This 141-nucleotide RNA sequence belongs to the Rfam family "Caenorhabditis snoRNA ceN51". Rfam links the family to the GO terms RNA processing and nucleolus. A reference for the family is Jia et al. (2007), "Systematic identification of non-coding RNA 2,2,7-trimethylguanosine cap structures in Caenorhabditis elegans", BMC Mol Biol.

RNA sequence: UCACGCGUGAGUACUGGCUGUUUGAGUCUCUACCGUUGCCAAUCAGCUGUCAUUAACCACGCCAUACUGUAAUCGAGGUGCUUAAUUACCGUGUGCAUACCACGUCUUCAUUGGUCACUCGGAGGAGGCACCUCCACAUGU
Number, nucleotide and partner (000 for none) at each position: 001u000002c000003a000004c000005g062006c061007g060008u059009g058010a000011g057012u056013a050014c049015u000016g048017g047018c046019u045020g044021u000022u042023u041024g040025a000026g039027u038028c000029u000030c000031u000032a000033c000034c000035g000036u000037u000038g027039c026040c024041a023042a022043u000044c020045a019046g018047c017048u016049g014050u013051c000052a000053u000054u000055a000056a012057c011058c009059a008060c007061g006062c005063c000064a000065u000066a000067c000068u000069g000070u000071a000072a000073u000074c000075g134076a133077g132078g131079u130080g129081c128082u127083u000084a000085a000086u124087u123088a000089c122090c121091g120092u000093g118094u117095g116096c000097a000098u000099a000100c114101c113102a112103c000104g000105u000106c000107u000108u000109c000110a000111u000112u102113g101114g100115u000116c095117a094118c093119u000120c091121g090122g089123a087124g086125g000126a000127g082128g081129c080130a079131c078132c077133u076134c075135c000136a000137c000138a000139u000140g000141u000